[Rfam]
Nucleotides: 107
Base pairs, nucleotide, nucleotide: 002106003105004104005103013096014095015094016093017092018091019090020089021088024085025084026083027082028081029080030079031078032077033076034075035074036073037072038071039070040069041068042067043066044065046063047062048061049060051058
Number, partner (000 for none) and nucleotide at each position: 001000a002106g003105a004104u005103a006000u007000a008000a009000c010000a011000c012000u013096u014095u015094u016093u017092g018091c019090u020089a021088u022000u023000c024085u025084c026083g027082g028081c029080c030079a031078a032077u033076a034075a035074c036073a037072u038071a039070a040069u041068g042067a043066c044065a045000g046063g047062u048061g049060g050000u051058a052000u053000a054000a055000u056000u057000u058051u059000u060049u061048c062047a063046c064000g065044u066043g067042u068041c069040g070039u071038u072037g073036u074035g075034u076033u077032a078031u079030u080029g081028g082027c083026c084025g085024a086000a087000a088021a089020u090019a091018g092017c093016a094015a095014a096013a097000u098000a099000a100000u101000g102000u103005u104004a105003u106002c107000c

Rfam assigns this 107-nucleotide RNA sequence from Prunus avium to the family "MIR6274 microRNA precursor family". The family has 2 seed sequences and 342 matches in Rfam 15.1. The base pairs follow the family's consensus structure, which was predicted with RNAalifold. The match comes from Rfam's covariance-model search (84 bits).